[Rfam]
RNA sequence: UCGUACUUAGAUGGAUAGUGCGUAGUUGCUCUGCAAUUAUGUGAAUUUAAGUAUGAUGUUGUGUUUGCAUAUUAGUCUAGGUAACUAGGCUAGAAUAACGUAAGUUAUUCGUUUCACUUCCUGUAUAUUUUGAACCAUUUGGUUUAACGCCGCCCACUUGGGCGGUUUUUUUACAU
Numbered sequence: 001u002c003g004u005a006c007u008u009a010g011a012u013g014g015a016u017a018g019u020g021c022g023u024a025g026u027u028g029c030u031c032u033g034c035a036a037u038u039a040u041g042u043g044a045a046u047u048u049a050a051g052u053a054u055g056a057u058g059u060u061g062u063g064u065u066u067g068c069a070u071a072u073u074a075g076u077c078u079a080g081g082u083a084a085c086u087a088g089g090c091u092a093g094a095a096u097a098a099c100g101u102a103a104g105u106u107a108u109u110c111g112u113u114u115c116a117c118u119u120c121c122u123g124u125a126u127a128u129u130u131u132g133a134a135c136c137a138u139u140u141g142g143u144u145u146a147a148c149g150c151c152g153c154c155c156a157c158u159u160g161g162g163c164g165g166u167u168u169u170u171u172u173a174c175a176u
Stems, first nucleotide, its partner, number of pairs: 001044002005042002011040004016033003020029003073092008094109006125145001127143003146169002149166005
Rfam assigns this 176-nucleotide RNA sequence from Vespertiliibacter pulmonis to the family "GcvB RNA". Taxonomically the source falls in Vespertiliibacter (Bacteria, Pseudomonadota, Gammaproteobacteria, Pasteurellales). Rfam links the family to the GO terms regulation of gene expression and mRNA binding. The match comes from Rfam's covariance-model search (93 bits). For this family Rfam cites "A small RNA regulates multiple ABC transporter mRNAs by targeting C/A-rich elements inside and upstream of ribosome-binding sites" (Sharma et al., Genes Dev, 2007). Pairs were carried over by alignment from the consensus structure, which is taken from published work. The gcvB gene encodes a small untranslated RNA involved in expression of the dipeptide and oligopeptide transport systems in Escherichia coli. Included several unknown homologues in alignment (Bateman A pers obs). It base-pairs with SorC. This interaction triggers the degradation of GcvB by RNase E, alleviating the GcvB-mediated mRNA repression of other amino acid-related transport and metabolic genes.